[Rfam]
RNA: mir-2774 microRNA precursor family
Organism: Bombyx mori
RNA sequence: ACAAAAUUCGGACCGUUGUUCUACCGAGCAGCAUCACCCGCUCGGUGGAAGAUCUUCCCUUUGUCGU
Numbered sequence: 001a002c003a004a005a006a007u008u009c010g011g012a013c014c015g016u017u018g019u020u021c022u023a024c025c026g027a028g029c030a031g032c033a034u035c036a037c038c039c040g041c042u043c044g045g046u047g048g049a050a051g052a053u054c055u056u057c058c059c060u061u062u063g064u065c066g067u
Base pairs, nucleotide, nucleotide: 004064006062010058011057012056015053016052017051020049021048022047023046024045025044026043027042028041029040